[Rfam]
RNA sequence: UCAUUAAGCAUUGCACCCAGAGUCUGUUCUACCAGACACUGUACCUGGAGCUUUUUCUUUUUUAUAAUUAAACGUU
Numbered sequence: 001u002c003a004u005u006a007a008g009c010a011u012u013g014c015a016c017c018c019a020g021a022g023u024c025u026g027u028u029c030u031a032c033c034a035g036a037c038a039c040u041g042u043a044c045c046u047g048g049a050g051c052u053u054u055u056u057c058u059u060u061u062u063u064a065u066a067a068u069u070a071a072a073c074g075u076u
Stems, first nucleotide, its partner, number of pairs: 006053004017048004022037005

Shown here is a 76-nucleotide RNA from Scophthalmus maximus, a member of the family "U1A polyadenylation inhibition element (PIE)".
The match comes from Rfam's covariance-model search (68 bits).
Lineage of the source: Eukaryota > Bilateria > Neopterygii > Acanthomorphata > Scophthalmus.
Gene Ontology term of the family: regulation of mRNA polyadenylation.
This family represents the U1A polyadenylation inhibition element (PIE). PIE is a regulatory RNA which is responsible for the regulation of the length of the polyA tail of the U1A pre-mRNA. The PIE is located in the U1A mRNA 3' UTR. PIE adopts a U-shaped structure, with binding sites for a single U1A protein at each bend and when complexed with the two proteins it blocks activity of poly(A) polymerase (PAP), and inhibits its activity.
The base pairs follow the family's consensus structure, which is taken from published work.